[Rfam]
RNA: DUF2800 RNA
RNA sequence: GUCCUGAAUACGACAUAAAACUGUUCUUCCGCGCAGUCUGAGUCGCUUGAUCACCGGCUGCUCAACGGACUGUAGCGGGAAAAGUUAAUAUGCACGGCUGUCAUUUGAGCUGACGGCUGCAAUUCUGAAUGGAGUGAUCCUUCAGAGCUGCGGUCUAUUUGUCAUGCCCAUUUGCAGCUUGAGA
Numbered sequence: 001g002u003c004c005u006g007a008a009u010a011c012g013a014c015a016u017a018a019a020a021c022u023g024u025u026c027u028u029c030c031g032c033g034c035a036g037u038c039u040g041a042g043u044c045g046c047u048u049g050a051u052c053a054c055c056g057g058c059u060g061c062u063c064a065a066c067g068g069a070c071u072g073u074a075g076c077g078g079g080a081a082a083a084g085u086u087a088a089u090a091u092g093c094a095c096g097g098c099u100g101u102c103a104u105u106u107g108a109g110c111u112g113a114c115g116g117c118u119g120c121a122a123u124u125c126u127g128a129a130u131g132g133a134g135u136g137a138u139c140c141u142u143c144a145g146a147g148c149u150g151c152g153g154u155c156u157a158u159u160u161g162u163c164a165u166g167c168c169c170a171u172u173u174g175c176a177g178c179u180u181g182a183g184a
Stems, first nucleotide, its partner, number of pairs: 029078004034072007041059005060110006096179006116154005129142001131140003